RNA: MIR2619 microRNA precursor family
RNA sequence: AAACAGUCCCCUAUGUAUUGGAUCUUUGGCAGUUUUGGCCCCAAGAUCACUUUUGACUUGGUCUUCGCUAACAUGGCACCCACAAUGGUCGACACGUGGCACCUCACUUAAGGGAUGUGGGUGCCACAUCAGCGAAAACCAAGUCAAAAGUGGCCUGGGGGCCAAAGAUCCAAUACAUAGGGGGCUGUUU
Numbered sequence: 001a002a003a004c005a006g007u008c009c010c011c012u013a014u015g016u017a018u019u020g021g022a023u024c025u026u027u028g029g030c031a032g033u034u035u036u037g038g039c040c041c042c043a044a045g046a047u048c049a050c051u052u053u054u055g056a057c058u059u060g061g062u063c064u065u066c067g068c069u070a071a072c073a074u075g076g077c078a079c080c081c082a083c084a085a086u087g088g089u090c091g092a093c094a095c096g097u098g099g100c101a102c103c104u105c106a107c108u109u110a111a112g113g114g115a116u117g118u119g120g121g122u123g124c125c126a127c128a129u130c131a132g133c134g135a136a137a138a139c140c141a142a143g144u145c146a147a148a149a150g151u152g153g154c155c156u157g158g159g160g161g162c163c164a165a166a167g168a169u170c171c172a173a174u175a176c177a178u179a180g181g182g183g184g185c186u187g188u189u190u
Base pairs, nucleotide, nucleotide: 001190002189004187005186006185007184008183012179013178014177015176016175017174018173019172020171021170022169023168024167025166026165027164028163029162030161040160041159042158044156071129074126075125076124077123078122079121080120081119